This 83-nucleotide sequence from Geococcyx californianus belongs to the Rfam family "Small nucleolar RNA SNORD60". Pairs were carried over by alignment from the consensus structure, which was predicted with PFOLD. The literature on the family includes a 1996 paper in Cell by Kiss-Laszlo et al., "Site-specific ribose methylation of preribosomal RNA: a novel function for small nucleolar RNAs".

[Rfam]
RNA sequence: GGCCGGGGAUGAGCAACAUUUAACUUUCUGACACCUCGUCUGAGGGCGCUGCGGCCCCUGCUGAGGAUGCACGGCUGAGGCCC
Number, nucleotide and partner (000 for none) at each position: 001g082002g081003c080004c079005g000006g000007g000008g000009a000010u000011g000012a000013g000014c000015a000016a000017c000018a000019u000020u000021u000022a000023a000024c000025u000026u000027u000028c000029u000030g000031a000032c000033a000034c000035c000036u000037c000038g000039u000040c000041u000042g000043a000044g000045g000046g057047c000048g055049c054050u000051g000052c000053g000054g049055c048056c000057c046058c000059u000060g000061c000062u000063g000064a000065g000066g000067a000068u000069g000070c000071a000072c000073g000074g000075c000076u000077g000078a000079g004080g003081c002082c001083c000
It scores 42 bits against the family's covariance model.